RNA sequence: GUCGCGCAAGCGCCGUAGACAGGAGCGGGGGACCCAAGGUUUGCCGCCGCACCGGCCGUUCGCCCCCAGUGGGCGGCGGCCGGAGCGGCUCGGGGUGAAGCCGCGCGGACCACUCAGGAACGCGCGGCCGGGCACUCAUCCGGCCCGAACCCGACAGCUCACCUCGCAGGCGUCGGUGAGGAGAUUC
Dot-bracket structure: ..(((.....(...........).((((((....(........................................................)(((.....(((((((.............)))))))..((((.........))))...))).........))))))..)))...............

The family of this 187-nucleotide RNA sequence from Streptomyces sp. SID7982 is "c-di-AMP riboswitch aptamer (ydaO/yuaA leader)". A search with the family's covariance model found it, with a score of 52 bits.